The family of this 52-nucleotide RNA from Clostridium sp. CAG:299 is "Streptococcus sRNA SpF59 (ldcC RNA)". The sequence is in the family's curated seed alignment. Taxonomically the source falls in Clostridium (Bacteria, Bacillati, Bacillota, Clostridia).

RNA sequence: UGCCCACUCCGACAGGAGUCAAGGCCAUACGGACAGCCGGGGCAAGUGCCGG
Dot-bracket structure: ((((((((((....)))))....................)))))........